A member of the RNA family "Fluoride riboswitch aptamer (crcB RNA motif)" from Tissierella sp. P1, 59 nucleotides long.
Taxonomically the source falls in Tissierella (Bacteria, Bacillati, Bacillota, Tissierellaceae).
RNA sequence: UAAAAAAUAGGUCAUGGGGUUGACCUUAACUGCUAUAUGCUAAUAACUCCUACAGAUAU
Number, nucleotide and partner (000 for none) at each position: 001u000002a000003a000004a000005a000006a000007a000008u000009a000010g025011g024012u023013c022014a000015u000016g050017g049018g048019g047020u046021u045022g013023a012024c011025c010026u000027u000028a000029a000030c000031u000032g040033c039034u000035a000036u000037a000038u000039g033040c032041u000042a000043a000044u000045a021046a020047c019048u018049c017050c016051u000052a000053c000054a000055g000056a000057u000058a000059u000
Overview:
A search with the family's covariance model found it, with a score of 47 bits.